[Rfam]
RNA sequence: GGGACGGGACGACCCGUGGGCGCAUGGAACGGAGGGACGGGACGACCCGU
Dot-bracket structure: ...(((((....)))))...................(((((....)))))
Numbered sequence: 001g002g003g004a005c006g007g008g009a010c011g012a013c014c015c016g017u018g019g020g021c022g023c024a025u026g027g028a029a030c031g032g033a034g035g036g037a038c039g040g041g042a043c044g045a046c047c048c049g050u
Stems, first nucleotide, its partner, number of pairs: 004017005037050005
Rfam assigns this 50-nucleotide RNA sequence from Aquarana catesbeiana to the family "Guanidine-II riboswitch aptamer (mini-ykkC)".
It scores 32 bits against the family's covariance model.
The source organism's lineage runs through Eukaryota, Gnathostomata, Amphibia, Batrachia and Aquarana.
Simpler in structure and has fewer highly conserved nucleotide positions than the ykkC-yxkD leader.
Gene Ontology term of the family: regulation of gene expression.